[Rfam]
RNA sequence: CAGGUGGUAUCAAUUUGAACCACACUGCGGAUAUUAAUUUAUAAUAUUAAUUUAUAAAAUGUUGAAAAAAUGUUUUUUGAAUAUUUUCUGCUUUGAUCCGGAAAGCGGACAGAGACAGGGUG
Numbered sequence: 001c002a003g004g005u006g007g008u009a010u011c012a013a014u015u016u017g018a019a020c021c022a023c024a025c026u027g028c029g030g031a032u033a034u035u036a037a038u039u040u041a042u043a044a045u046a047u048u049a050a051u052u053u054a055u056a057a058a059a060u061g062u063u064g065a066a067a068a069a070a071u072g073u074u075u076u077u078u079g080a081a082u083a084u085u086u087u088c089u090g091c092u093u094u095g096a097u098c099c100g101g102a103a104a105g106c107g108g109a110c111a112g113a114g115a116c117a118g119g120g121u122g
Stems, first nucleotide, its partner, number of pairs: 001027003004023005010018002088118003091114005097109003
Annotation:
The record is a 122-nucleotide sequence from Acetivibrio thermocellus, which matches "pan motif" in Rfam. It scores 59 bits against the family's covariance model. The family's RNA type in Rfam is cis-regulatory element. Lineage of the source: Bacteria > Bacillati > Bacillota > Acetivibrionales > Acetivibrio thermocellus.